The record is a 136-nucleotide sequence from Paenibacillus sp. MY03, which matches "Group II catalytic intron D1-D4-4" in Rfam. On this family, see Bonen and Vogel, Trends Genet 2001: "The ins and outs of group II introns". The organism belongs to Paenibacillus, within Bacteria. Rfam describes the family as follows. Group II introns are found in rRNA, tRNA and mRNA of organelles in fungi, plants and protists, and also in mRNA in bacteria.
[Rfam]
RNA sequence: UAGCCGGUGGAAGUCCGGACGAGGAAAGGCCAAGUCGCCUCGUAGCUGACAGGCAACUGAUGGAGAUUCUAAGAUUGAAGCCCUGUGACAAAGUAACUCCGCUAGGAGUGCGAUCAACCAGCAUACCGUAACAUGA
Numbered sequence: 001u002a003g004c005c006g007g008u009g010g011a012a013g014u015c016c017g018g019a020c021g022a023g024g025a026a027a028g029g030c031c032a033a034g035u036c037g038c039c040u041c042g043u044a045g046c047u048g049a050c051a052g053g054c055a056a057c058u059g060a061u062g063g064a065g066a067u068u069c070u071a072a073g074a075u076u077g078a079a080g081c082c083c084u085g086u087g088a089c090a091a092a093g094u095a096a097c098u099c100c101g102c103u104a105g106g107a108g109u110g111c112g113a114u115c116a117a118c119c120a121g122c123a124u125a126c127c128g129u130a131a132c133a134u135g136a
Base pairs, nucleotide, nucleotide: 020042021041022040023039024038049086050085051084052083053082054077055076056075058073063068093111094110096109097108098107099106115128